This 152-nucleotide RNA sequence belongs to the Rfam family "small nucleolar RNA snoR127". The literature on the family includes a 2009 paper in Nucleic Acids Res by Chen and Wu, "Mining small RNA sequencing data: a new approach to identify small nucleolar RNAs in Arabidopsis". The family's RNA type in Rfam is C/D-box small nucleolar RNA.
RNA sequence: CUGGAAUGAUGUGAAUUAGCCAAAUCAGACAUUAAUGUGCUCCAUAAGGCAACCGGCAUGAUCGAUCUGCUUGGAUCAUGUUGAUGACCCUCAUGUUGAAGCGCAUUUCUCUGAUGAUCAACAAAGAGAUUGGUUUCUUUUUCCUGACCAGA
Number, nucleotide and partner (000 for none) at each position: 001c151002u150003g149004g148005a000006a000007u000008g000009a000010u000011g000012u000013g000014a000015a000016u000017u000018a000019g000020c000021c000022a000023a000024a000025u000026c000027a000028g000029a000030c000031a000032u000033u000034a000035a000036u000037g000038u000039g000040c000041u000042c000043c000044a000045u000046a000047a000048g000049g000050c000051a000052a000053c000054c000055g000056g000057c000058a000059u000060g000061a000062u000063c000064g000065a000066u000067c000068u000069g000070c000071u000072u000073g000074g000075a000076u000077c000078a000079u000080g000081u000082u000083g000084a000085u000086g000087a000088c000089c000090c000091u000092c000093a000094u000095g000096u000097u000098g000099a000100a000101g000102c000103g000104c000105a000106u000107u000108u000109c000110u000111c000112u000113g000114a000115u000116g000117a000118u000119c000120a000121a000122c000123a000124a000125a000126g000127a000128g000129a000130u000131u000132g000133g000134u000135u000136u000137c000138u000139u000140u000141u000142u000143c000144c000145u000146g000147a000148c004149c003150a002151g001152a000